RNA sequence: AGGCCCCUCCUUCCCAGACACAGCUUUGGCUCACCCCUGCCACGUCAAAGAGGCAGAAAGGGAGUCAGGAGCAGAGAGGGGACCA
Numbered sequence: 001a002g003g004c005c006c007c008u009c010c011u012u013c014c015c016a017g018a019c020a021c022a023g024c025u026u027u028g029g030c031u032c033a034c035c036c037c038u039g040c041c042a043c044g045u046c047a048a049a050g051a052g053g054c055a056g057a058a059a060g061g062g063a064g065u066c067a068g069g070a071g072c073a074g075a076g077a078g079g080g081g082a083c084c085a
Base pairs, nucleotide, nucleotide: 002084003083004081005080006079007078008077009076012075013074023072024071025070026069027068029066030064031063032062034061035060037056038055039054040053041052043050